[Rfam]
Nucleotides: 130
Base pairs, nucleotide, nucleotide: 002130004128009124010123011122012121013120014119019036020035021034022033023032024031037086038085039084046059047058048057049056050055060081061080062079064075065074066073067072
Number, partner (000 for none) and nucleotide at each position: 001000c002130c003000a004128a005000a006000c007000c008000a009124a010123u011122a012121c013120c014119g015000g016000a017000g018000g019036a020035c021034a022033g023032g024031c025000a026000a027000u028000c029000g030000a031024g032023c033022c034021u035020g036019u037086g038085g039084g040000g041000a042000u043000u044000u045000a046059c047058c048057u049056g050055c051000u052000c053000a054000g055050g056049c057048a058047g059046g060081c061080g062079g063000c064075u065074g066073c067072a068000u069000u070000c071000g072067u073066g074065c075064a076000u077000c078000a079062c080061c081060g082000u083000g084039c085038c086037c087000g088000u089000c090000a091000u092000a093000c094000c095000u096000c097000a098000u099000c100000c101000g102000c103000g104000c105000a106000u107000c108000u109000u110000c111000c112000g113000g114000c115000g116000c117000u118000c119014u120013g121012g122011u123010a124009u125000c126000u127000a128004u129000c130002g
The record is a 130-nucleotide RNA from Klebsiella michiganensis, which matches "EFASI RNA" in Rfam. It is one of the family's seed sequences. The family's consensus secondary structure is taken from published work. The source organism's lineage runs through Bacteria, Pseudomonadota, Gammaproteobacteria, Enterobacterales and Klebsiella michiganensis.